[Rfam]
RNA: mir-25 microRNA precursor family
Organism: Albula goreensis
RNA sequence: AGCUGGUGUUGAGAGGCGGAGACUUGGGCAAUUGCUGCCAAUCCCAAAGGGCAUUGCACUUGUCUCGGUCUGACAGUGCCGGCA
Numbered sequence: 001a002g003c004u005g006g007u008g009u010u011g012a013g014a015g016g017c018g019g020a021g022a023c024u025u026g027g028g029c030a031a032u033u034g035c036u037g038c039c040a041a042u043c044c045c046a047a048a049g050g051g052c053a054u055u056g057c058a059c060u061u062g063u064c065u066c067g068g069u070c071u072g073a074c075a076g077u078g079c080c081g082g083c084a
Base pairs, nucleotide, nucleotide: 002083003082004081006079007078008077009076014071015070016069017068019066020065021064022063023062028057029056030055031054032053034052035051036050